RNA sequence: GCUGGCGAUGACGACACACUUGCCCUCACUGAGCCCAGCCUGGGCUGAUGAGAGCUGUUCUCUGCGCUCAGCGCAGCCGAGCCAGC
Numbered sequence: 001g002c003u004g005g006c007g008a009u010g011a012c013g014a015c016a017c018a019c020u021u022g023c024c025c026u027c028a029c030u031g032a033g034c035c036c037a038g039c040c041u042g043g044g045c046u047g048a049u050g051a052g053a054g055c056u057g058u059u060c061u062c063u064g065c066g067c068u069c070a071g072c073g074c075a076g077c078c079g080a081g082c083c084a085g086c
Stems, first nucleotide, its partner, number of pairs: 001086006
RNA: Small nucleolar RNA SNORD103/SNORD85
Organism: Columbina picui